[Rfam]
RNA sequence: GGUUGAUCCAAUGGUAGUGAGUUAUCUCAGUUGAUUGUUCACAAUCAGUUACAGAUCAAAGUCCUUGCUCUACUCUUUCUCCCUUCCCACUACUGUACUUGACUAGUCUUUA
Numbered sequence: 001g002g003u004u005g006a007u008c009c010a011a012u013g014g015u016a017g018u019g020a021g022u023u024a025u026c027u028c029a030g031u032u033g034a035u036u037g038u039u040c041a042c043a044a045u046c047a048g049u050u051a052c053a054g055a056u057c058a059a060a061g062u063c064c065u066u067g068c069u070c071u072a073c074u075c076u077u078u079c080u081c082c083c084u085u086c087c088c089a090c091u092a093c094u095g096u097a098c099u100u101g102a103c104u105a106g107u108c109u110u111u112a
Stems, first nucleotide, its partner, number of pairs: 001108005007102002010100002014096002016091004021086001029074003033070002
A member of the RNA family "Y RNA" from Theropithecus gelada, 112 nucleotides long. From the family's description: Y RNAs are components of the Ro ribonucleoprotein particle (Ro RNP), in association with Ro60 and La proteins. The Y RNAs and Ro60 and La proteins are well conserved, but the function of the Ro RNP is not known. The family's consensus secondary structure is taken from published work. Taxonomically the source falls in Theropithecus (Eukaryota, Vertebrata, Euteleostomi, Primates). It scores 62 bits against the family's covariance model.